[Rfam]
Nucleotides: 067
Base pairs, nucleotide, nucleotide: 009059010058011057013055014054018050019049023045024044025043026042028041029040030039031038
Number, partner (000 for none) and nucleotide at each position: 001000c002000c003000c004000u005000a006000g007000c008000c009059c010058u011057g012000a013055u014054g015000g016000a017000a018050g019049c020000g021000g022000c023045a024044u025043c026042c027000c028041g029040c030039g031038c032000u033000u034000u035000u036000u037000u038031g039030c040029g041028c042026g043025g044024a045023u046000a047000c048000a049019g050018c051000g052000g053000a054014c055013a056000g057011c058010a059009g060000g061000a062000u063000c064000a065000g066000c067000u